[Rfam]
RNA sequence: ACAGCAGGAAAGGAGGUGGUCCGAACAGUGAUUUCUCAUCGGACUUGCGAGGUGUCCGUCCGCUAGGGCGCGAUGCUGAUUGCGGAGUCGCUCUGGCGAAUCCACAUCUGGACACCCAGGCCCUCGGGCGACCGGACUUGUCCGCCGGUCCUCCGCCACCCGGCGGAGAGCACGCCCGGGGGUCUGCCCAU
Numbered sequence: 001a002c003a004g005c006a007g008g009a010a011a012g013g014a015g016g017u018g019g020u021c022c023g024a025a026c027a028g029u030g031a032u033u034u035c036u037c038a039u040c041g042g043a044c045u046u047g048c049g050a051g052g053u054g055u056c057c058g059u060c061c062g063c064u065a066g067g068g069c070g071c072g073a074u075g076c077u078g079a080u081u082g083c084g085g086a087g088u089c090g091c092u093c094u095g096g097c098g099a100a101u102c103c104a105c106a107u108c109u110g111g112a113c114a115c116c117c118a119g120g121c122c123c124u125c126g127g128g129c130g131a132c133c134g135g136a137c138u139u140g141u142c143c144g145c146c147g148g149u150c151c152u153c154c155g156c157c158a159c160c161c162g163g164c165g166g167a168g169a170g171c172a173c174g175c176c177c178g179g180g181g182g183u184c185u186g187c188c189c190a191u
Stems, first nucleotide, its partner, number of pairs: 015060005061098007070091004118185013132148004

The record is a 191-nucleotide sequence from Murinocardiopsis flavida, which matches "Actinobacteria sRNA Ms_IGR-5" in Rfam. Rfam classes the family as a small RNA. It scores 76 bits against the family's covariance model.